The record is a 69-nucleotide RNA from Saccharothrix australiensis, which matches "ASpks TB sRNA" in Rfam. A reference for the family is Arnvig and Young (2009), "Identification of small RNAs in Mycobacterium tuberculosis", Mol Microbiol. Rfam 15.1 lists 9,052 matches to the family in 683 species. The family's RNA type in Rfam is antisense RNA. The source organism's lineage runs through Bacteria, Bacillati, Actinomycetota, Actinomycetes and Saccharothrix. The match comes from Rfam's covariance-model search (80 bits). The family's consensus secondary structure is taken from published work.
[Rfam]
RNA sequence: CUUCACCGAACCCAGCCACAGCGGCUCUGCCCGGUCCUGCCCGUAGGUGGCCAGCACCGCCUGCGCCUC
Number, nucleotide and partner (000 for none) at each position: 001c000002u000003u000004c000005a000006c000007c000008g000009a000010a000011c000012c000013c000014a026015g025016c024017c023018a000019c000020a000021g000022c000023g017024g016025c015026u014027c000028u065029g064030c063031c000032c059033g058034g000035u000036c000037c054038u053039g052040c000041c050042c049043g048044u000045a000046g000047g000048u043049g042050g041051c000052c039053a038054g037055c000056a000057c000058c033059g032060c000061c000062u000063g030064c029065g028066c000067c000068u000069c000